[Rfam]
RNA: Group II catalytic intron D1-D4-2
RNA sequence: GAGGGUAGGCCCCUCGAAGUCGAUCUACAGGGAUUGGCUUCAAACCGCCUUGUAACGAAUGAUCCACAAUGGGGUCUACGGGAAGCUAACAAGGAAAAGGCAGCCUAAAGCUGUCAGGU
Numbered sequence: 001g002a003g004g005g006u007a008g009g010c011c012c013c014u015c016g017a018a019g020u021c022g023a024u025c026u027a028c029a030g031g032g033a034u035u036g037g038c039u040u041c042a043a044a045c046c047g048c049c050u051u052g053u054a055a056c057g058a059a060u061g062a063u064c065c066a067c068a069a070u071g072g073g074g075u076c077u078a079c080g081g082g083a084a085g086c087u088a089a090c091a092a093g094g095a096a097a098a099g100g101c102a103g104c105c106u107a108a109a110g111c112u113g114u115c116a117g118g119u
Stems, first nucleotide, its partner, number of pairs: 001015005016041006023034004046118001048094006099115006